[Rfam]
RNA sequence: AUUACGUGCUAGGGGAGCUUAGUGCUGAGACUGCCGCAUACCGUGGCUGACCCUCAUGACCUGAACCGGAUAAUGCCGGCGUAGGCAAGCAGCAAUGUUGAGGA
Numbered sequence: 001a002u003u004a005c006g007u008g009c010u011a012g013g014g015g016a017g018c019u020u021a022g023u024g025c026u027g028a029g030a031c032u033g034c035c036g037c038a039u040a041c042c043g044u045g046g047c048u049g050a051c052c053c054u055c056a057u058g059a060c061c062u063g064a065a066c067c068g069g070a071u072a073a074u075g076c077c078g079g080c081g082u083a084g085g086c087a088a089g090c091a092g093c094a095a096u097g098u099u100g101a102g103g104a
Stems, first nucleotide, its partner, number of pairs: 007091004011054004016048001017025002033047004060085004066079004
Dot-bracket structure: ......((((((((.(((.....)).......((((.......)))))..)))).....((((..((((......))))..))))..)))).............

Overview:
The family of this 104-nucleotide RNA from bacterium C-53 is "TPP riboswitch aptamer (THI element)". Pairs were carried over by alignment from the consensus structure, which is taken from published work.